[Rfam]
RNA sequence: AAAUAACUUCAGGGACAGGUGUAAUUCCUUACCGGCGGUUAAAGCCCGCGAGCCAUAUUGGCUGAUCUGGUGAAAUUCCGGAGCCGACAGUUAAAGUCUGGAUGAAAGAAGUAUGAG
Numbered sequence: 001a002a003a004u005a006a007c008u009u010c011a012g013g014g015a016c017a018g019g020u021g022u023a024a025u026u027c028c029u030u031a032c033c034g035g036c037g038g039u040u041a042a043a044g045c046c047c048g049c050g051a052g053c054c055a056u057a058u059u060g061g062c063u064g065a066u067c068u069g070g071u072g073a074a075a076u077u078c079c080g081g082a083g084c085c086g087a088c089a090g091u092u093a094a095a096g097u098c099u100g101g102a103u104g105a106a107a108g109a110a111g112u113a114u115g116a117g
Stems, first nucleotide, its partner, number of pairs: 006112005017029003031097002033086002035049004044084002052062003066082005088100003
RNA: FMN riboswitch aptamer (RFN element)